[Rfam]
Nucleotides: 067
Stems, first nucleotide, its partner, number of pairs: 001065005009054005022049003030042002034039001
Number, partner (000 for none) and nucleotide at each position: 001065c002064c003063u004062g005061u006000g007000g008000a009054g010053u011052g012051u013050u014000g015000u016000a017000u018000c019000a020000a021000a022049c023048u024047g025000u026000a027000g028000u029000a030042g031041c032000g033000a034039g035000u036000u037000a038000a039034u040000g041031g042030c043000g044000a045000g046000a047024c048023a049022g050013g051012a052011c053010a054009c055000a056000u057000a058000g059000a060000a061005g062004c063003a064002g065001g066000a067000a